[Rfam]
RNA: U1 spliceosomal RNA
RNA sequence: AUACUUACCUGGACGGGGUCAAUGGGCGAUCAACAAGGCCCAUGGCCUAGGUUGGUGACUUCCAUUGCACUUUGGAGGGGCGCUUGCCUAAGGUCGGCCCAAGUGGUUGAGCCUACGUCAUAAUUUGUGGCCC
Number, nucleotide and partner (000 for none) at each position: 001a000002u000003a000004c000005u000006u000007a000008c000009c000010u000011g000012g119013a118014c117015g116016g048017g047018g046019u045020c044021a043022a000023u042024g041025g040026g039027c038028g000029a000030u000031c000032a000033a000034c000035a000036a000037g000038g027039c026040c025041c024042a023043u021044g020045g019046c018047c017048u016049a089050g088051g087052u000053u086054g000055g083056u082057g081058a000059c079060u078061u077062c075063c074064a000065u000066u000067g000068c000069a000070c000071u000072u000073u000074g063075g062076a000077g061078g060079g059080g000081c057082g056083c055084u000085u000086g053087c051088c050089u049090a000091a114092g113093g112094u110095c109096g108097g000098c106099c105100c000101a000102a000103g000104u000105g099106g098107u000108u096109g095110a094111g000112c093113c092114u091115a000116c015117g014118u013119c012120a000121u000122a000123a000124u000125u000126u000127g000128u000129g000130g000131c000132c000133c000